[Rfam]
RNA sequence: CAACAGAAUAUUUAAUUAAGAAUCACUUUCCCUGUGGAGGCCUGGUGUGCAAUGGCUACAAACAGCAGCCUCCCGGGCAGUGUACAGCCUGUUGCUUAUACAGGUUGCCCUAAGGGACCUUGGAGACAGCC
Numbered sequence: 001c002a003a004c005a006g007a008a009u010a011u012u013u014a015a016u017u018a019a020g021a022a023u024c025a026c027u028u029u030c031c032c033u034g035u036g037g038a039g040g041c042c043u044g045g046u047g048u049g050c051a052a053u054g055g056c057u058a059c060a061a062a063c064a065g066c067a068g069c070c071u072c073c074c075g076g077g078c079a080g081u082g083u084a085c086a087g088c089c090u091g092u093u094g095c096u097u098a099u100a101c102a103g104g105u106u107g108c109c110c111u112a113a114g115g116g117a118c119c120u121u122g123g124a125g126a127c128a129g130c131c
Stems, first nucleotide, its partner, number of pairs: 004049002019046001020043001023040002026037001076119002085107006
RNA: Small nucleolar RNA SNORA70
Organism: Balaenoptera musculus